[Rfam]
RNA sequence: ACCUUCUCACUGAGCUCCUUUCUGUCGAUUGGUGGCAGUUUAUGGAUUCGCACGAGAAGAAGAGACAAUUCACAGUUAGCAUUAUUUUGCCCUCUGUCUUCACAGAGGUAUAUUCUGAUCUGUGAGACAUUU
Numbered sequence: 001a002c003c004u005u006c007u008c009a010c011u012g013a014g015c016u017c018c019u020u021u022c023u024g025u026c027g028a029u030u031g032g033u034g035g036c037a038g039u040u041u042a043u044g045g046a047u048u049c050g051c052a053c054g055a056g057a058a059g060a061a062g063a064g065a066c067a068a069u070u071c072a073c074a075g076u077u078a079g080c081a082u083u084a085u086u087u088u089g090c091c092c093u094c095u096g097u098c099u100u101c102a103c104a105g106a107g108g109u110a111u112a113u114u115c116u117g118a119u120c121u122g123u124g125a126g127a128c129a130u131u132u
Stems, first nucleotide, its partner, number of pairs: 003059006014051002016046003022038005070125006091108006
Annotation
Small nucleolar RNA SNORA75: a 132-nucleotide sequence from Acinonyx jubatus. Rfam classes the family as an H/ACA-box small nucleolar RNA. The family has 6 seed sequences and 414 matches in Rfam 15.1. Rfam describes the family as follows. U23 belongs to the H/ACA class of snoRNAs. snoRNAs bind a number of proteins (including dyskerin, Gar1p and Nop10p in the case of the H/ACA class) to form snoRNP complexes. This class are thought to guide the sites of modification of uridines to pseudouridines by forming direct base pairing interactions with substrate RNAs. Targets include ribosomal and spliceosomal RNAs as well as the Trypanosoma spliced leader RNA (SL RNA) as possibly other, still unknown cellular RNAs. U23 can direct the pseudouridylation of U97 in human 18S rRNA (Bachellerie JP, Ganot, P unpublished data).